Notes
The record is a 57-nucleotide RNA sequence from Crocosphaera watsonii, which matches "Cyano-1 RNA" in Rfam. A search with the family's covariance model found it, with a score of 44 bits.
RNA sequence: GAGUAUGUAAGAAAGCACUUGGGGUCGAAACACGGCAAGACUCCCAGGUGCUUGUCU
Numbered sequence: 001g002a003g004u005a006u007g008u009a010a011g012a013a014a015g016c017a018c019u020u021g022g023g024g025u026c027g028a029a030a031c032a033c034g035g036c037a038a039g040a041c042u043c044c045c046a047g048g049u050g051c052u053u054g055u056c057u
Stems, first nucleotide, its partner, number of pairs: 013053011024041003
By type it is a small RNA.